[Rfam]
RNA: c-di-GMP-I-UAU riboswitch aptamer
Organism: Geobacter argillaceus
RNA sequence: UUCCGAACGGGUAAACCUCGGGUAACCGGGGGACACAAAGCCACGGGUCCUGCACAGAAGGCAGGAUAGCCGGGUUGCCGAAG
Numbered sequence: 001u002u003c004c005g006a007a008c009g010g011g012u013a014a015a016c017c018u019c020g021g022g023u024a025a026c027c028g029g030g031g032g033a034c035a036c037a038a039a040g041c042c043a044c045g046g047g048u049c050c051u052g053c054a055c056a057g058a059a060g061g062c063a064g065g066a067u068a069g070c071c072g073g074g075u076u077g078c079c080g081a082a083g
Stems, first nucleotide, its partner, number of pairs: 011036002016031006039076004044072003047067007